[Rfam]
RNA sequence: CCGUCGGUGAAAGUCCGACCCGGCGAACUCGCGCUCCAGCCGGAAGCACAGGGAGCGGUUCAGGAGGUAACGAAUGGACUGAAGCACUGCCUGAAAAGGCCUCGUAGGAGGCCAGCAGGUCAUGCGGGCCGCAACGUGA
Numbered sequence: 001c002c003g004u005c006g007g008u009g010a011a012a013g014u015c016c017g018a019c020c021c022g023g024c025g026a027a028c029u030c031g032c033g034c035u036c037c038a039g040c041c042g043g044a045a046g047c048a049c050a051g052g053g054a055g056c057g058g059u060u061c062a063g064g065a066g067g068u069a070a071c072g073a074a075u076g077g078a079c080u081g082a083a084g085c086a087c088u089g090c091c092u093g094a095a096a097a098g099g100c101c102u103c104g105u106a107g108g109a110g111g112c113c114a115g116c117a118g119g120u121c122a123u124g125c126g127g128g129c130c131g132c133a134a135c136g137u138g139a
Stems, first nucleotide, its partner, number of pairs: 020043005051091002054088002056081006066071001098113006115132002